[Rfam]
RNA sequence: GUUUGGGUGAUGAUUUUAACAAUUUGUCGGAUACCCCUUCACUCGCCCUGUGAGUGAAAGCAGCAGUCUGACAAAC
Numbered sequence: 001g002u003u004u005g006g007g008u009g010a011u012g013a014u015u016u017u018a019a020c021a022a023u024u025u026g027u028c029g030g031a032u033a034c035c036c037c038u039u040c041a042c043u044c045g046c047c048c049u050g051u052g053a054g055u056g057a058a059a060g061c062a063g064c065a066g067u068c069u070g071a072c073a074a075a076c
Stems, first nucleotide, its partner, number of pairs: 001076005

A member of the RNA family "Small nucleolar RNA SNORD101" from Leptosomus discolor, 76 nucleotides long. Its Rfam clan is "SNORD101 clan". The base pairs follow the family's consensus structure, which was predicted with PFOLD. Rfam 15.1 lists 658 matches to the family in 617 species. Taxonomically the source falls in Leptosomus (Eukaryota, Bilateria, Euteleostomi, Leptosomiformes). A search with the family's covariance model found it, with a score of 71 bits.